[Rfam]
RNA sequence: CGGAAACCGUUGGGGUGCCCGGAAGGGCUGAGAGGCGCGCGCGCCAACCCAUCGCACCUGAUCCGGACAAUGCCGGCGUAGGGAACGGACAUGACGACAUC
Numbered sequence: 001c002g003g004a005a006a007c008c009g010u011u012g013g014g015g016u017g018c019c020c021g022g023a024a025g026g027g028c029u030g031a032g033a034g035g036c037g038c039g040c041g042c043g044c045c046a047a048c049c050c051a052u053c054g055c056a057c058c059u060g061a062u063c064c065g066g067a068c069a070a071u072g073c074c075g076g077c078g079u080a081g082g083g084a085a086c087g088g089a090c091a092u093g094a095c096g097a098c099a100u101c
Base pairs, nucleotide, nucleotide: 007088008087009086010085011051012050013049014048017028018027019026020025035044036043037042057082058081059080060079063076064075065074066073
This 101-nucleotide sequence from Amaricoccus solimangrovi belongs to the Rfam family "TPP riboswitch aptamer (THI element)".